[Rfam]
RNA: permuted transfer-messenger RNA
RNA sequence: UGUUGUAUUACAUUUUAGUAAAUGUAUGCUGGACGCGGCUUCAAUGCCGCCAGCUCCACCAAGAACACACUAAGUGAAGCACACCUUUUAAACCAUGCGGAUUUGAGUUCCGAGGCUUAGUGUAUUCCUGAUGGGGCUGUCAGGUUUCGACAGCGUAAGAUAGCGAGAAUCACAACACGUCAGGCCAAUGACGCUAAAACAGCAAAUGAAAAUAAACGCAAACGACACACAGUUCGCAUUAGCUGCCUAA
Dot-bracket structure: (((((.......(((.........(((.(((...(((((......)))))(((((((...........................................................................)))))))...........))).))).......))).....)))))((((........)))).........................................................